The family of this 107-nucleotide sequence from Desulforamulus ferrireducens is "SAM riboswitch aptamer (S box leader)". Its Rfam clan is "SAM clan". Lineage of the source: Bacteria > Bacillati > Bacillota > Eubacteriales > Desulforamulus. Rfam links the family to the GO term regulation of gene expression. It scores 102 bits against the family's covariance model.

RNA sequence: UUCUUAUCCAGAGUGGCUGAGGGACUGGCCCUGCGAAGCCCGGCAACCUUCUUUACAUUAAGAAAGGUGCUAAUUCCUGCAGAAGGUAAUCUUCUGAAAGAUAAGAA
Numbered sequence: 001u002u003c004u005u006a007u008c009c010a011g012a013g014u015g016g017c018u019g020a021g022g023g024a025c026u027g028g029c030c031c032u033g034c035g036a037a038g039c040c041c042g043g044c045a046a047c048c049u050u051c052u053u054u055a056c057a058u059u060a061a062g063a064a065a066g067g068u069g070c071u072a073a074u075u076c077c078u079g080c081a082g083a084a085g086g087u088a089a090u091c092u093u094c095u096g097a098a099a100g101a102u103a104a105g106a107a
Stems, first nucleotide, its partner, number of pairs: 001107008013041001015040003021031003025079001027077002042071004047067002049063002052060001075099001080096006